[Rfam]
RNA sequence: UACUGUUUGUGAUGAAUUCUCAGCAAUGGGAAUCUCUCUGAAAGAGGCUGAGGAAAACUCGUGCUGAAACAGUA
Numbered sequence: 001u002a003c004u005g006u007u008u009g010u011g012a013u014g015a016a017u018u019c020u021c022a023g024c025a026a027u028g029g030g031a032a033u034c035u036c037u038c039u040g041a042a043a044g045a046g047g048c049u050g051a052g053g054a055a056a057a058c059u060c061g062u063g064c065u066g067a068a069a070c071a072g073u074a
Stems, first nucleotide, its partner, number of pairs: 001074007

The family of this 74-nucleotide RNA sequence from Rhipidura dahli is "Small nucleolar RNA SNORD79".
For this family Rfam cites "Purified box C/D snoRNPs are able to reproduce site-specific 2'-O-methylation of target RNA in vitro" (Galardi et al., Mol Cell Biol, 2002).
Rfam's curators write: snoRNA U79 or Z22 is found in intron 7 of the gas5 gene in humans and is also present in mice.
Lineage of the source: Eukaryota > Dinosauria > Theropoda > Australaves > Rhipidura.
Rfam links the family to the GO terms RNA processing and nucleolus.
The family's RNA type in Rfam is C/D-box small nucleolar RNA.
Rfam 15.1 lists 784 matches to the family in 651 species.